[Rfam]
RNA sequence: CAACCAGAAAGUAAAAACACUGUGCGGUUGGUAGUCCGGACAUAAAUGUAAUAGUUUUCAGUAAACCUCCUCCUUGGUUGUCCAUCUUUCUAUCGGUAAUU
Numbered sequence: 001c002a003a004c005c006a007g008a009a010a011g012u013a014a015a016a017a018c019a020c021u022g023u024g025c026g027g028u029u030g031g032u033a034g035u036c037c038g039g040a041c042a043u044a045a046a047u048g049u050a051a052u053a054g055u056u057u058u059c060a061g062u063a064a065a066c067c068u069c070c071u072c073c074u075u076g077g078u079u080g081u082c083c084a085u086c087u088u089u090c091u092a093u094c095g096g097u098a099a100u101u
Base pairs, nucleotide, nucleotide: 006091007090008089009088010087011086022041023040025038026037027036042058044056045055047053069077070076
Shown here is a 101-nucleotide RNA sequence from Leuconostoc fallax, a member of the family "azaaromatic riboswitch aptamer (yjdF RNA)".